This 198-nucleotide RNA from Cephalotus follicularis belongs to the Rfam family "small nucleolar RNA snoR127". By type it is a C/D-box small nucleolar RNA. Taxonomically the source falls in Cephalotus (Eukaryota, Euphyllophyta, Pentapetalae, fabids). Pairs were carried over by alignment from the consensus structure, which was predicted with RNAalifold. It scores 55 bits against the family's covariance model.

RNA sequence: CUGGAAUGAUGUAGCUUAGCCAAAUCAGACAUUUGACGUGCUCCAUAAGGCAUGCUCUUGAAUGUUUGUUUUGUGGAUAUUGUUGAGGUGCUAAAGUAAUCUCUUCUAUACCCUUGAACAAGCUAUAUAUAUAAGAUGCCUUCUGUUGAAGCGCGUCUCCCUGAUGAUAAACUAGAGAUCGGUUGCUUUCUGACCAGA
Numbered sequence: 001c002u003g004g005a006a007u008g009a010u011g012u013a014g015c016u017u018a019g020c021c022a023a024a025u026c027a028g029a030c031a032u033u034u035g036a037c038g039u040g041c042u043c044c045a046u047a048a049g050g051c052a053u054g055c056u057c058u059u060g061a062a063u064g065u066u067u068g069u070u071u072u073g074u075g076g077a078u079a080u081u082g083u084u085g086a087g088g089u090g091c092u093a094a095a096g097u098a099a100u101c102u103c104u105u106c107u108a109u110a111c112c113c114u115u116g117a118a119c120a121a122g123c124u125a126u127a128u129a130u131a132u133a134a135g136a137u138g139c140c141u142u143c144u145g146u147u148g149a150a151g152c153g154c155g156u157c158u159c160c161c162u163g164a165u166g167a168u169a170a171a172c173u174a175g176a177g178a179u180c181g182g183u184u185g186c187u188u189u190c191u192g193a194c195c196a197g198a
Base pairs, nucleotide, nucleotide: 001197002196003195004194